[Rfam]
RNA: FMN riboswitch aptamer (RFN element)
Organism: Microbacterium sorbitolivorans
RNA sequence: CACGUGCUCCGGGGUCGGUGAGAAUCCGAACCGGCGGUAUAGUCCGCGACCCCCUCUCGGAGGGGUUGAUCCGGUGAGAUUCCGGGACCGACGGUGAUGCAGGCAACGCCUGCGAGUCCGGAUGGAAGGCAGCACGGU
Numbered sequence: 001c002a003c004g005u006g007c008u009c010c011g012g013g014g015u016c017g018g019u020g021a022g023a024a025u026c027c028g029a030a031c032c033g034g035c036g037g038u039a040u041a042g043u044c045c046g047c048g049a050c051c052c053c054c055u056c057u058c059g060g061a062g063g064g065g066u067u068g069a070u071c072c073g074g075u076g077a078g079a080u081u082c083c084g085g086g087a088c089c090g091a092c093g094g095u096g097a098u099g100c101a102g103g104c105a106a107c108g109c110c111u112g113c114g115a116g117u118c119c120g121g122a123u124g125g126a127a128g129g130c131a132g133c134a135c136g137g138u
Stems, first nucleotide, its partner, number of pairs: 003136006009129002016028003032090002034047004042088002051065002070086005092120003